L31-Actinobacteria ribosomal protein leader: a 44-nucleotide sequence from Nocardia seriolae.
The organism belongs to Nocardia, within Bacteria.
The match comes from Rfam's covariance-model search (38 bits).
RNA sequence: UCGGUUUUGGUUCACGUCCCGCGUUCGCGAGGCGACCCAAGGCC
Numbered sequence: 001u002c003g004g005u006u007u008u009g010g011u012u013c014a015c016g017u018c019c020c021g022c023g024u025u026c027g028c029g030a031g032g033c034g035a036c037c038c039a040a041g042g043c044c
Stems, first nucleotide, its partner, number of pairs: 003044003007040004015034004020029003